[Rfam]
RNA sequence: CGAUGGGAUAGAGGCUGCUGCUUAUAAAAGUAGAACAGACGAGAUUCAAUGACAUCGUUGACUCUGUUUAAAAGGAUAAGCUGCCGAAGUUUGGAUUUUUCAUUGAAUGUCCAUGCUGGGGAUGUUUUCGAAUAGGAACAUCACUGUCACGUAAUUUUUACGUGGAGAACUAUCUUCGGA
Numbered sequence: 001c002g003a004u005g006g007g008a009u010a011g012a013g014g015c016u017g018c019u020g021c022u023u024a025u026a027a028a029a030g031u032a033g034a035a036c037a038g039a040c041g042a043g044a045u046u047c048a049a050u051g052a053c054a055u056c057g058u059u060g061a062c063u064c065u066g067u068u069u070a071a072a073a074g075g076a077u078a079a080g081c082u083g084c085c086g087a088a089g090u091u092u093g094g095a096u097u098u099u100u101c102a103u104u105g106a107a108u109g110u111c112c113a114u115g116c117u118g119g120g121g122a123u124g125u126u127u128u129c130g131a132a133u134a135g136g137a138a139c140a141u142c143a144c145u146g147u148c149a150c151g152u153a154a155u156u157u158u159u160a161c162g163u164g165g166a167g168a169a170c171u172a173u174c175u176u177c178g179g180a
Base pairs, nucleotide, nucleotide: 006175007174008173009172010171011170017084018083020081021080022079023078024077025076033069034068035067036066037065038064039063088117089116090115092113093112094111095110096109098107099106118145119144121142122141123140124139125138126137127136128135147165148164149163150162151161152160153159

A member of the RNA family "Lysine riboswitch aptamer" from Cytobacillus dafuensis, 180 nucleotides long. From the family's description: Riboswitches are metabolite binding domains within certain messenger RNAs that serve as precision sensors for their corresponding targets. Allosteric rearrangement of mRNA structure is mediated by ligand binding, and this results in modulation of gene expression. This family includes riboswitches that sense lysine in a number of genes involved in lysine metabolism, including lysC. The base pairs follow the family's consensus structure, which is taken from published work. NCBI's taxonomy places the organism under Bacteria, Bacillota, Caryophanales, Bacillaceae, Cytobacillus. A search with the family's covariance model found it, with a score of 126 bits.